This 131-nucleotide RNA sequence from Vitis vinifera belongs to the Rfam family "MIR845_2 microRNA precursor family". The source organism's lineage runs through Eukaryota, Streptophytina, Spermatophyta, Gunneridae and Vitis. A search with the family's covariance model found it, with a score of 124 bits. The literature on the family includes a 2007 paper in Nature by Jaillon et al., "The grapevine genome sequence suggests ancestral hexaploidization in major angiosperm phyla".
RNA sequence: AGGACACACAUUAAUUAUCCCUGGGGCCAUGGGAUAAACAAGAACUCUAUGAAACCAAGUUAACAUACCCUACAAUGGUUCUAGCUCGAUUACUAACCUAUGGCUCUAAUACCAGUUGAUGGAAAAAAUCC
Numbered sequence: 001a002g003g004a005c006a007c008a009c010a011u012u013a014a015u016u017a018u019c020c021c022u023g024g025g026g027c028c029a030u031g032g033g034a035u036a037a038a039c040a041a042g043a044a045c046u047c048u049a050u051g052a053a054a055c056c057a058a059g060u061u062a063a064c065a066u067a068c069c070c071u072a073c074a075a076u077g078g079u080u081c082u083a084g085c086u087c088g089a090u091u092a093c094u095a096a097c098c099u100a101u102g103g104c105u106c107u108a109a110u111a112c113c114a115g116u117u118g119a120u121g122g123a124a125a126a127a128a129u130c131c
Stems, first nucleotide, its partner, number of pairs: 009121008022108012053080002056077002061072002